[Rfam]
RNA sequence: GGGUCAGCUUUAGCUCAAGCGGUUACUUCGGUUUCUGCUCGUUGCGGACACAUAACCCUACCUUAGGGUUCGAGACCCGCGGGCGCUCUCUGACCCUUUU
Numbered sequence: 001g002g003g004u005c006a007g008c009u010u011u012a013g014c015u016c017a018a019g020c021g022g023u024u025a026c027u028u029c030g031g032u033u034u035c036u037g038c039u040c041g042u043u044g045c046g047g048a049c050a051c052a053u054a055a056c057c058c059u060a061c062c063u064u065a066g067g068g069u070u071c072g073a074g075a076c077c078c079g080c081g082g083g084c085g086c087u088c089u090c091u092g093a094c095c096c097u098u099u100u
Stems, first nucleotide, its partner, number of pairs: 002095006013084004019080004027074005
Description: Vault RNA: a 100-nucleotide RNA from Myotis lucifugus. Pairs were carried over by alignment from the consensus structure, which is taken from published work. Rfam's curators put it in the seed alignment. A reference for the family is Stadler et al. (2009), "Evolution of Vault RNAs", Mol Biol Evol. The family's RNA type in Rfam is non-coding RNA gene.